[Rfam]
Background
Rfam assigns this 547-nucleotide part of an RNA from Flavobacterium aquatile to the family "Bacterial large subunit ribosomal RNA".
RNA sequence: AAAAUAAGGGCGUAUGGGGGAUGCCUUGGCUCUCAGAGGCGAUGAAAGGCGUGAUAAGCUGCGAAAAGCUACGGGGAUUGGCACACACGAAUUGAUCCGUAGAUACCUGAAUGGGGCAACCCACUAUGUUGAAGACAUAGUACACCGAUAGGUGGGCAAACCCGCUGAACUGAAACAUCUAAGUAGGCGGAGGAGAAGAAAACAAAAGUGAUUCCGUAAGUAGUGGCGAGCGAACGCGGAUUAGCCCAAACCAGUGUUGUUACGGCAAUACUGGGGUUGUAGGACCACGAGAUUUGUUGCGGAUUGAAUUAGAAUAACCUGGAAAGGUUAACCAUAGAGGGUGAUAGUCCCGUAUAAGUAAGAGAAGAUAACGAUAGUGGUAUCCUGAGUAGGGCGGGGCACGUGAAACCCUGUCUGAAUUUGGCGGGACCAUCCGCUAAGGCUAAAUACUCCUGAGAGACCGAUAGUGAACCAGUACCGUGAGGGAAAGGUGAAAAGAACCGUGAAUAACGGAGUGAAAUAGAUCCUGAAACCAUACGCUUACAAG
Numbered sequence: 001a002a003a004a005u006a007a008g009g010g011c012g013u014a015u016g017g018g019g020g021a022u023g024c025c026u027u028g029g030c031u032c033u034c035a036g037a038g039g040c041g042a043u044g045a046a047a048g049g050c051g052u053g054a055u056a057a058g059c060u061g062c063g064a065a066a067a068g069c070u071a072c073g074g075g076g077a078u079u080g081g082c083a084c085a086c087a088c089g090a091a092u093u094g095a096u097c098c099g100u101a102g103a104u105a106c107c108u109g110a111a112u113g114g115g116g117c118a119a120c121c122c123a124c125u126a127u128g129u130u131g132a133a134g135a136c137a138u139a140g141u142a143c144a145c146c147g148a149u150a151g152g153u154g155g156g157c158a159a160a161c162c163c164g165c166u167g168a169a170c171u172g173a174a175a176c177a178u179c180u181a182a183g184u185a186g187g188c189g190g191a192g193g194a195g196a197a198g199a200a201a202a203c204a205a206a207a208g209u210g211a212u213u214c215c216g217u218a219a220g221u222a223g224u225g226g227c228g229a230g231c232g233a234a235c236g237c238g239g240a241u242u243a244g245c246c247c248a249a250a251c252c253a254g255u256g257u258u259g260u261u262a263c264g265g266c267a268a269u270a271c272u273g274g275g276g277u278u279g280u281a282g283g284a285c286c287a288c289g290a291g292a293u294u295u296g297u298u299g300c301g302g303a304u305u306g307a308a309u310u311a312g313a314a315u316a317a318c319c320u321g322g323a324a325a326g327g328u329u330a331a332c333c334a335u336a337g338a339g340g341g342u343g344a345u346a347g348u349c350c351c352g353u354a355u356a357a358g359u360a361a362g363a364g365a366a367g368a369u370a371a372c373g374a375u376a377g378u379g380g381u382a383u384c385c386u387g388a389g390u391a392g393g394g395c396g397g398g399g400c401a402c403g404u405g406a407a408a409c410c411c412u413g414u415c416u417g418a419a420u421u422u423g424g425c426g427g428g429a430c431c432a433u434c435c436g437c438u439a440a441g442g443c444u445a446a447a448u449a450c451u452c453c454u455g456a457g458a459g460a461c462c463g464a465u466a467g468u469g470a471a472c473c474a475g476u477a478c479c480g481u482g483a484g485g486g487a488a489a490g491g492u493g494a495a496a497a498g499a500a501c502c503g504u505g506a507a508u509a510a511c512g513g514a515g516u517g518a519a520a521u522a523g524a525u526c527c528u529g530a531a532a533c534c535a536u537a538c539g540c541u542u543a544c545a546a547g
Stems, first nucleotide, its partner, number of pairs: 008542010023527001024491002028462002030459007037451002039157002047108003050063003069102007078090003113122003123141007143154004161192001162190005172179002202209002212447001213240005223231002243444004251274007281386003285380004295373005304364002309357003315330005333337001339351003392416008423438005478485002501513004
Notes
Pairs were carried over by alignment from the consensus structure, which is taken from published work. NCBI's taxonomy places the organism under Bacteria, Pseudomonadati, Flavobacteriia, Flavobacterium, Flavobacterium aquatile.